[Rfam]
RNA: COG3860 RNA
Organism: Tritonibacter multivorans
RNA sequence: UGGUCCGCAGUUCACCAAGGCUCCGCCACGGGAUGUCCCGAUGCUAAACCUGCGA
Numbered sequence: 001u002g003g004u005c006c007g008c009a010g011u012u013c014a015c016c017a018a019g020g021c022u023c024c025g026c027c028a029c030g031g032g033a034u035g036u037c038c039c040g041a042u043g044c045u046a047a048a049c050c051u052g053c054g055a
Stems, first nucleotide, its partner, number of pairs: 001017004029040004